[Rfam]
RNA sequence: CAUCGCGAUGCUCUUCAAUGAUGGAGAGAUCGUGAUGAGGAUACUGUCGAAACGUCAGCUAAAGGAGCUGGUUUUGUACUCGCCGCAACACGUCGCACGCCUGGAGAAGGCCGGCCUAUUCCCAAAACGGGUACAGCUGGGCCCAAACAGAGUGGGAUGGGUCGAAGCCGAAGUGCUGGAAUGGCUCGAUGAGCGGCUGGCGAAACGGGACACCCCACCCGACACUCCUGAGUAAGGAGCAGGGUGGCCGGGGGUGCACACCUC
Numbered sequence: 001c002a003u004c005g006c007g008a009u010g011c012u013c014u015u016c017a018a019u020g021a022u023g024g025a026g027a028g029a030u031c032g033u034g035a036u037g038a039g040g041a042u043a044c045u046g047u048c049g050a051a052a053c054g055u056c057a058g059c060u061a062a063a064g065g066a067g068c069u070g071g072u073u074u075u076g077u078a079c080u081c082g083c084c085g086c087a088a089c090a091c092g093u094c095g096c097a098c099g100c101c102u103g104g105a106g107a108a109g110g111c112c113g114g115c116c117u118a119u120u121c122c123c124a125a126a127a128c129g130g131g132u133a134c135a136g137c138u139g140g141g142c143c144c145a146a147a148c149a150g151a152g153u154g155g156g157a158u159g160g161g162u163c164g165a166a167g168c169c170g171a172a173g174u175g176c177u178g179g180a181a182u183g184g185c186u187c188g189a190u191g192a193g194c195g196g197c198u199g200g201c202g203a204a205a206c207g208g209g210a211c212a213c214c215c216c217a218c219c220c221g222a223c224a225c226u227c228c229u230g231a232g233u234a235a236g237g238a239g240c241a242g243g244g245u246g247g248c249c250g251g252g253g254g255u256g257c258a259c260a261c262c263u264c
Base pairs, nucleotide, nucleotide: 001037002036003035004034005033006032007031008030009029012027013026014025015024016023017022055200056199057198058197059196060195065187066186067185068184069183070182072180073179074178077175078174079173080172081170082169083167086164088162089161091159092158093157094156096154097153098152101150102149103148109143110142111141113138114137115136121131122130123129206246207245219243220242225239226238227237228236229235251263252262253261